[Rfam]
RNA sequence: UGACAGUUUCAGGAAAGGGUGAGAUUCCCUACUGGUGGUGACGUUUGAGACAGAUAAAAGCCUGCUCGAUCAAACGAAGUCCGCGACCCGCGCAAGCGGUUGACUUGGUGAGAUUCCAAGACCAACGGUAUAGUCCGGAUGGGAGAAGCGGAGA
Numbered sequence: 001u002g003a004c005a006g007u008u009u010c011a012g013g014a015a016a017g018g019g020u021g022a023g024a025u026u027c028c029c030u031a032c033u034g035g036u037g038g039u040g041a042c043g044u045u046u047g048a049g050a051c052a053g054a055u056a057a058a059a060g061c062c063u064g065c066u067c068g069a070u071c072a073a074a075c076g077a078a079g080u081c082c083g084c085g086a087c088c089c090g091c092g093c094a095a096g097c098g099g100u101u102g103a104c105u106u107g108g109u110g111a112g113a114u115u116c117c118a119a120g121a122c123c124a125a126c127g128g129u130a131u132a133g134u135c136c137g138g139a140u141g142g143g144a145g146a147a148g149c150g151g152a153g154a
Stems, first nucleotide, its partner, number of pairs: 004151001006149005017029003031134002033124002035084004088099002104120005126137003
The family of this 154-nucleotide RNA sequence from Atopobium sp. oral taxon 199 is "FMN riboswitch aptamer (RFN element)".
For this family Rfam cites "An mRNA structure that controls gene expression by binding FMN" (Winkler et al., Proc Natl Acad Sci U S A, 2002).
The organism belongs to Atopobium sp. oral taxon 199, within Bacteria.
Its family is annotated with FMN binding in the Gene Ontology.
The match comes from Rfam's covariance-model search (94 bits).
The RFN element is a highly conserved domain that is found frequently in the 5'-untranslated regions of prokaryotic mRNAs that encode for flavin mononucleotide (FMN) biosynthesis and transport proteins.